[Rfam]
RNA sequence: GGACUCUCCAUUGUGCUUGAUUUAACCAUGUGGUUGAAUACUAUAACCCAUGGUUGAGUCAAGCACCUGGGAAAGCCC
Numbered sequence: 001g002g003a004c005u006c007u008c009c010a011u012u013g014u015g016c017u018u019g020a021u022u023u024a025a026c027c028a029u030g031u032g033g034u035u036g037a038a039u040a041c042u043a044u045a046a047c048c049c050a051u052g053g054u055u056g057a058g059u060c061a062a063g064c065a066c067c068u069g070g071g072a073a074a075g076c077c078c
Stems, first nucleotide, its partner, number of pairs: 001078002004075002007072003013066007024055007
The record is a 78-nucleotide RNA from Polypterus senegalus, which matches "mir-218 microRNA precursor family" in Rfam.